This 99-nucleotide sequence from Terasakiella magnetica belongs to the Rfam family "Bacterial small signal recognition particle RNA". Rfam links the family to the GO terms signal recognition particle, plasma membrane targeting and SRP-dependent cotranslational protein targeting to membrane, signal sequence recognition. The literature on the family includes a 2003 paper in Nucleic Acids Res by Rosenblad et al., "SRPDB: Signal Recognition Particle Database". Rfam describes the family as follows. The signal recognition particle (SRP) is a universally conserved ribonucleoprotein involved in the co-translational targeting of proteins to membranes. The organism belongs to Terasakiella, within Bacteria. The base pairs follow the family's consensus structure, which is taken from published work.
RNA sequence: GAGAGGUUGGUACGGACGAGCUCCUCGCCAACCCGGUCAGGUCCGGAAGGAAGCAGCCGUAACGAGUUUUUCGGUUCGGGUCGUAUUCAACCUCUCACC
Numbered sequence: 001g002a003g004a005g006g007u008u009g010g011u012a013c014g015g016a017c018g019a020g021c022u023c024c025u026c027g028c029c030a031a032c033c034c035g036g037u038c039a040g041g042u043c044c045g046g047a048a049g050g051a052a053g054c055a056g057c058c059g060u061a062a063c064g065a066g067u068u069u070u071u072c073g074g075u076u077c078g079g080g081u082c083g084u085a086u087u088c089a090a091c092c093u094c095u096c097a098c099c
Stems, first nucleotide, its partner, number of pairs: 003094005009087006017078006024066004034059004042051003